The family of this 107-nucleotide sequence from Shinella sp. WSJ-2 is "EcpR1". Gene Ontology terms of the family: negative regulation of cell cycle, regulation of translation in response to stress and mRNA binding. The literature on the family includes a 2012 paper in RNA Biol by Wilms et al., "Deep sequencing uncovers numerous small RNAs on all four replicons of the plant pathogen Agrobacterium tumefaciens". Taxonomically the source falls in Shinella (Bacteria, Pseudomonadati, Alphaproteobacteria, Hyphomicrobiales). Perviously named SmelC291, SmrC10, or Sra33. According to its overproduction phenotype it was renamed Elongated Cell Phenotype RNA1. Induced by stress,EcpR1 negatively regulates cell cycle master regulatory genes dnaA and gcrA at post-transcriptional level by base pairing between its strongly conserved GC-rich loop and the target mRNAs. It's regulation is hfq-independent but requires RNase E to regulate dnaA.

[Rfam]
RNA sequence: UUACCCCAUGAUGCUAGGUCCGCCGCAUCUCCUGGGUCGUGGGGUCGGUCGGUCGGUUACGACAAAUACGGAAUCCUCGUGCCGUCGUCGUACUGACCGACCCCCAU
Numbered sequence: 001u002u003a004c005c006c007c008a009u010g011a012u013g014c015u016a017g018g019u020c021c022g023c024c025g026c027a028u029c030u031c032c033u034g035g036g037u038c039g040u041g042g043g044g045u046c047g048g049u050c051g052g053u054c055g056g057u058u059a060c061g062a063c064a065a066a067u068a069c070g071g072a073a074u075c076c077u078c079g080u081g082c083c084g085u086c087g088u089c090g091u092a093c094u095g096a097c098c099g100a101c102c103c104c105c106a107u
Stems, first nucleotide, its partner, number of pairs: 003045008014036002016033003047102011